[Rfam]
RNA sequence: AACAUCAUUUUUAAUCACGUAUGCAAGUAUUGACUUUCUGAUAGGGAUGAGUUGCGUUUUUCUAUACGUCUCAUGUUUCUCCAAUACUUGCUAAGUGUAGAAUAAAAUAUAGAACGUUGCUGGGCGCCUGAUGUUGAUCUUUUGAUAUGAAACGUUGGGAAUCAGCAGUAUCUACAAAU
Numbered sequence: 001a002a003c004a005u006c007a008u009u010u011u012u013a014a015u016c017a018c019g020u021a022u023g024c025a026a027g028u029a030u031u032g033a034c035u036u037u038c039u040g041a042u043a044g045g046g047a048u049g050a051g052u053u054g055c056g057u058u059u060u061u062c063u064a065u066a067c068g069u070c071u072c073a074u075g076u077u078u079c080u081c082c083a084a085u086a087c088u089u090g091c092u093a094a095g096u097g098u099a100g101a102a103u104a105a106a107a108u109a110u111a112g113a114a115c116g117u118u119g120c121u122g123g124g125c126g127c128c129u130g131a132u133g134u135u136g137a138u139c140u141u142u143u144g145a146u147a148u149g150a151a152a153c154g155u156u157g158g159g160a161a162u163c164a165g166c167a168g169u170a171u172c173u174a175c176a177a178a179u
Base pairs, nucleotide, nucleotide: 016097017096018095024090025089026088027087028086029085030084031083032082038044039043047074048073049072050071051070053068054067112172113171114169115168127159128158131155132154133153134152135151138150139149141147
Background
This 179-nucleotide RNA sequence from Torulaspora globosa belongs to the Rfam family "Small nucleolar RNA snR32". Rfam classes the family as an H/ACA-box small nucleolar RNA.